[Rfam]
RNA sequence: GGGCAGGAUAGGUAAUGGAGGCAUCCACGCAAGCGCGGACACCCCCAUUACUCCCCUUAUUCGCACCGGGGGCGCUCAACGGGAAUCCUGCUCUGCGAGGCC
Numbered sequence: 001g002g003g004c005a006g007g008a009u010a011g012g013u014a015a016u017g018g019a020g021g022c023a024u025c026c027a028c029g030c031a032a033g034c035g036c037g038g039a040c041a042c043c044c045c046c047a048u049u050a051c052u053c054c055c056c057u058u059a060u061u062c063g064c065a066c067c068g069g070g071g072g073c074g075c076u077c078a079a080c081g082g083g084a085a086u087c088c089u090g091c092u093c094u095g096c097g098a099g100g101c102c
Stems, first nucleotide, its partner, number of pairs: 001093009012051006020043002024039003028035002054083003063075002066072002
Shown here is a 102-nucleotide RNA sequence from Sphingobium indicum, a member of the family "traJ-II RNA". The base pairs follow the family's consensus structure, which is taken from published work. Rfam classes the family as a cis-regulatory element.